[Rfam]
About this RNA:
The family of this 100-nucleotide RNA from Maritimibacter alkaliphilus is "Glycine riboswitch aptamer". The pairing is the family consensus, mapped onto this sequence.
RNA sequence: CGCAUCCACGUUGGGAGAAUCUGGCGCCCGCCUGACCGGGACCAGUGCCGAAGGAGCAACCGCCCCGGAACCUCUCAGGCUUCAGGACCGCGUGGACGAC
Numbered sequence: 001c002g003c004a005u006c007c008a009c010g011u012u013g014g015g016a017g018a019a020u021c022u023g024g025c026g027c028c029c030g031c032c033u034g035a036c037c038g039g040g041a042c043c044a045g046u047g048c049c050g051a052a053g054g055a056g057c058a059a060c061c062g063c064c065c066c067g068g069a070a071c072c073u074c075u076c077a078g079g080c081u082u083c084a085g086g087a088c089c090g091c092g093u094g095g096a097c098g099a100c
Base pairs, nucleotide, nucleotide: 006095007094008093009092010091012090013089014088021045022044023043024042047080048079049078050076051075054074055073056072060068061067